Shown here is a 97-nucleotide RNA sequence from Callorhinus ursinus, a member of the family "Z6 small nucleolar RNA". Its family is annotated with nucleolus and RNA processing in the Gene Ontology. On this family, see Galardi et al., Mol Cell Biol 2002: "Purified box C/D snoRNPs are able to reproduce site-specific 2'-O-methylation of target RNA in vitro". Rfam classes the family as a C/D-box small nucleolar RNA.
[Rfam]
RNA sequence: UGCUGGUCGUGAAGCACCUGCUCUCGGAAUCCUGGGCCCUGCCAGGGGUGAGCCAGUGGGAGCUGCCCACCCGUCCGUCCCACCCACCGGCCCAGCA
Numbered sequence: 001u002g003c004u005g006g007u008c009g010u011g012a013a014g015c016a017c018c019u020g021c022u023c024u025c026g027g028a029a030u031c032c033u034g035g036g037c038c039c040u041g042c043c044a045g046g047g048g049u050g051a052g053c054c055a056g057u058g059g060g061a062g063c064u065g066c067c068c069a070c071c072c073g074u075c076c077g078u079c080c081c082a083c084c085c086a087c088c089g090g091c092c093c094a095g096c097a
Stems, first nucleotide, its partner, number of pairs: 001097006